The family of this 96-nucleotide RNA sequence from Clostridium sp. D5 is "Purine riboswitch aptamer". The family's consensus secondary structure is taken from published work. Lineage of the source: Bacteria > Bacillota > Clostridia > Eubacteriales > Clostridium.
RNA sequence: AAUAUUUUUUAGGACGAAAUUUAUAUAUGCUCAUAAUUGGUUGAGCGUUUCUACCAGCUACCGUAAUAGCUGUCUAUAAAUUUCCCUUUUAUACCA
Numbered sequence: 001a002a003u004a005u006u007u008u009u010u011a012g013g014a015c016g017a018a019a020u021u022u023a024u025a026u027a028u029g030c031u032c033a034u035a036a037u038u039g040g041u042u043g044a045g046c047g048u049u050u051c052u053a054c055c056a057g058c059u060a061c062c063g064u065a066a067u068a069g070c071u072g073u074c075u076a077u078a079a080a081u082u083u084c085c086c087u088u089u090u091a092u093a094c095c096a
Stems, first nucleotide, its partner, number of pairs: 018082008029046005055072006